[Rfam]
RNA sequence: GGAGCAGCUUCUGGAGAGACCGUGGAAUGCCGCGGCGCCGAAGGGUUCACAAUCUCAGGCAAAAGGACAGAAGAGUAAGG
Numbered sequence: 001g002g003a004g005c006a007g008c009u010u011c012u013g014g015a016g017a018g019a020c021c022g023u024g025g026a027a028u029g030c031c032g033c034g035g036c037g038c039c040g041a042a043g044g045g046u047u048c049a050c051a052a053u054c055u056c057a058g059g060c061a062a063a064a065g066g067a068c069a070g071a072a073g074a075g076u077a078a079g080g
Stems, first nucleotide, its partner, number of pairs: 008073006020035004037060003040056002044054003
RNA: Glycine riboswitch aptamer
Organism: Paenibacillus albiflavus